RNA: Small nucleolar RNA Z118/Z121/Z120
RNA sequence: UGUCUGUUGUGAUGAACCACAACGGUAUGUCACUAAGGUUAGCUUUUUAAAAAGGCCUCCUUCCUUGAUUACACAUCCUAAACUGAUCAUAUAUUCUGAGCAAACA
Numbered sequence: 001u002g003u004c005u006g007u008u009g010u011g012a013u014g015a016a017c018c019a020c021a022a023c024g025g026u027a028u029g030u031c032a033c034u035a036a037g038g039u040u041a042g043c044u045u046u047u048u049a050a051a052a053a054g055g056c057c058u059c060c061u062u063c064c065u066u067g068a069u070u071a072c073a074c075a076u077c078c079u080a081a082a083c084u085g086a087u088c089a090u091a092u093a094u095u096c097u098g099a100g101c102a103a104a105c106a
Base pairs, nucleotide, nucleotide: 001106002105003104005102006101007100035062036061037060038059